Rfam assigns this 72-nucleotide sequence from Denticeps clupeoides to the family "mir-153 microRNA precursor family".
The source organism's lineage runs through Eukaryota, Opisthokonta, Euteleostomi, Actinopteri and Denticeps.
It scores 74 bits against the family's covariance model.
The family has 63 seed sequences and 1,565 matches in Rfam 15.1.
RNA sequence: GUCUGUGGCAUUUUUGUGCUCUGCAGCUAGUAAUCUGGCUUCAGUUGCAUAGUCACAAAAAUGAACACAGGC
Numbered sequence: 001g002u003c004u005g006u007g008g009c010a011u012u013u014u015u016g017u018g019c020u021c022u023g024c025a026g027c028u029a030g031u032a033a034u035c036u037g038g039c040u041u042c043a044g045u046u047g048c049a050u051a052g053u054c055a056c057a058a059a060a061a062u063g064a065a066c067a068c069a070g071g072c
Base pairs, nucleotide, nucleotide: 002071003070004069005068006067007066009063010062011061012060013059014058015057016056017055018054020052022049023048024047025046026045027044028043